[Rfam]
Nucleotides: 148
Base pairs, nucleotide, nucleotide: 001023003021004020005019006018007017008016034050035049036048037047057130058129059128083091102112103111
Number, partner (000 for none) and nucleotide at each position: 001023u002000g003021c004020c005019g006018g007017u008016u009000g010000u011000c012000c013000a014000a015000a016008a017007a018006c019005c020004g021003g022000a023001g024000u025000u026000a027000c028000u029000g030000a031000a032000g033000a034050g035049g036048c037047a038000c039000a040000c041000c042000c043000u044000c045000a046000u047037u048036g049035c050034c051000g052000g053000c054000a055000g056000u057130g058129c059128g060000g061000a062000a063000c064000g065000g066000g067000g068000u069000c070000u071000c072000c073000c074000a075000u076000u077000u078000c079000c080000a081000a082000g083091c084000c085000a086000a087000g088000g089000c090000a091083g092000a093000c094000a095000a096000a097000g098000c099000g100000a101000a102112c103111c104000g105000a106000g107000g108000c109000c110000g111103g112102g113000c114000a115000a116000g117000g118000c119000c120000a121000g122000g123000u124000u125000c126000a127000c128059c129058g130057c131000c132000g133000c134000g135000a136000g137000a138000c139000g140000g141000c142000g143000u144000u145000u146000c147000g148000u
Annotation:
speF leader: a 148-nucleotide RNA from Borborobacter arsenicus. Rfam describes the family as follows. This family is a putative regulatory RNA structure that is found upstream of the speF gene encoding ornithine decarboxylase in Agrobacterium tumefaciens and other alpha-proteobacteria. The base pairs follow the family's consensus structure, which was predicted with RNAalifold. Rfam links the family to the GO term regulation of gene expression. A reference for the family is del Val et al. (2012), "A survey of sRNA families in alpha-proteobacteria", RNA Biol. It scores 86 bits against the family's covariance model.